[Rfam]
The record is a 94-nucleotide RNA from Mohoua ochrocephala, which matches "mir-146 microRNA precursor family" in Rfam. The literature on the family includes a 2005 paper in Proc Natl Acad Sci U S A by Cai et al., "Kaposi's sarcoma-associated herpesvirus expresses an array of viral microRNAs in latently infected cells". The match comes from Rfam's covariance-model search (63 bits).
RNA sequence: AUUCUUUCUAAGCUUUGAUAACUGAAUUCCAUGGGUUGUAAAUUAAUUUGCUCCCAUACCCAUAGGGCUCAGUUCUUAAGUUUAGAUUCUUCUG
Numbered sequence: 001a002u003u004c005u006u007u008c009u010a011a012g013c014u015u016u017g018a019u020a021a022c023u024g025a026a027u028u029c030c031a032u033g034g035g036u037u038g039u040a041a042a043u044u045a046a047u048u049u050g051c052u053c054c055c056a057u058a059c060c061c062a063u064a065g066g067g068c069u070c071a072g073u074u075c076u077u078a079a080g081u082u083u084a085g086a087u088u089c090u091u092c093u094g
Stems, first nucleotide, its partner, number of pairs: 008085002011082003018076001020074006033061004